[Rfam]
The record is a 105-nucleotide RNA sequence from Triticum aestivum, which matches "MIR396 microRNA precursor family" in Rfam. Its family is annotated with miRNA-mediated post-transcriptional gene silencing and RISC complex in the Gene Ontology. Taxonomically the source falls in Triticum (Eukaryota, Viridiplantae, Spermatophyta, Pooideae). For this family Rfam cites "Computational identification of plant microRNAs and their targets, including a stress-induced miRNA" (Jones-Rhoades and Bartel, Mol Cell, 2004). The family's consensus secondary structure was predicted with WAR.
RNA sequence: CUUUGCUGUCUUCCACAGCUUUCUUGAACUGCAUCUGCAAUUGGUGGAUGCUAGCUUCUGCUCGCAAGAUCUGCAGUUCAAUAAAGCUGUGGGAAAUUGCAGAGA
Numbered sequence: 001c002u003u004u005g006c007u008g009u010c011u012u013c014c015a016c017a018g019c020u021u022u023c024u025u026g027a028a029c030u031g032c033a034u035c036u037g038c039a040a041u042u043g044g045u046g047g048a049u050g051c052u053a054g055c056u057u058c059u060g061c062u063c064g065c066a067a068g069a070u071c072u073g074c075a076g077u078u079c080a081a082u083a084a085a086g087c088u089g090u091g092g093g094a095a096a097u098u099g100c101a102g103a104g105a
Stems, first nucleotide, its partner, number of pairs: 003102004013092003017088006024081004029076005